The family of this 36-nucleotide sequence from Mycobacterium phage Minerva is "abiF RNA".
[Rfam]
RNA sequence: CCCCCCAAGCCUCUCGACGAUGCUAAAACGGGAGGG
Numbered sequence: 001c002c003c004c005c006c007a008a009g010c011c012u013c014u015c016g017a018c019g020a021u022g023c024u025a026a027a028a029c030g031g032g033a034g035g036g
Stems, first nucleotide, its partner, number of pairs: 001035002004032003008024003

Actinobacteria, Bacteroidetes, Clostridia, Proteobacteria, one Clostridia phage.